Record summary: The family of this 135-nucleotide RNA from Pleuronectes platessa is "U11 spliceosomal RNA". Taxonomically the source falls in Pleuronectes (Eukaryota, Metazoa, Clupeocephala, Pleuronectidae). Pairs were carried over by alignment from the consensus structure, which is taken from published work. The literature on the family includes a 2004 paper in Proc Natl Acad Sci U S A by Schneider et al., "Identification of an evolutionarily divergent U11 small nuclear ribonucleoprotein particle in Drosophila".
[Rfam]
RNA sequence: AAAAAGGGCUUCUGCUUUGUUUUGCACAGGAGAAGGGGCGAGUGUCUCUUCUCCUGCGGAAUCUACAUCAAGAGAUUUCGGAAGCACAAUUUUUACAACACGGGGCAGCUAGUGAUCGAUCAUCCUGGUGCCCCA
Numbered sequence: 001a002a003a004a005a006g007g008g009c010u011u012c013u014g015c016u017u018u019g020u021u022u023u024g025c026a027c028a029g030g031a032g033a034a035g036g037g038g039c040g041a042g043u044g045u046c047u048c049u050u051c052u053c054c055u056g057c058g059g060a061a062u063c064u065a066c067a068u069c070a071a072g073a074g075a076u077u078u079c080g081g082a083a084g085c086a087c088a089a090u091u092u093u094u095a096c097a098a099c100a101c102g103g104g105g106c107a108g109c110u111a112g113u114g115a116u117c118g119a120u121c122a123u124c125c126u127g128g129u130g131c132c133c134c135a
Base pairs, nucleotide, nucleotide: 008085009084010083011082012081013026014025015024027056028055029054030053031052032051033050034049035048036047037046038045057080058079059078060077061076062075063074103133104132105131106130108129109128110127111126112125114124115123116122